[Rfam]
RNA sequence: UUUAACAAGAAGAAACAGCCGUUUCUCACCUUACAGCAUAGCUAGUUAGGUUAAUUAGUAAUUUAAAUUGUUACUAUUAAGGACGGCAUUCGUGUCGUCCUUUUUAUUAUUG
Numbered sequence: 001u002u003u004a005a006c007a008a009g010a011a012g013a014a015a016c017a018g019c020c021g022u023u024u025c026u027c028a029c030c031u032u033a034c035a036g037c038a039u040a041g042c043u044a045g046u047u048a049g050g051u052u053a054a055u056u057a058g059u060a061a062u063u064u065a066a067a068u069u070g071u072u073a074c075u076a077u078u079a080a081g082g083a084c085g086g087c088a089u090u091c092g093u094g095u096c097g098u099c100c101u102u103u104u105u106a107u108u109a110u111u112g
Base pairs, nucleotide, nucleotide: 011026012025013024014023015022016021028051029050030049033046034045036042037041082099083098084097085096086095087094088093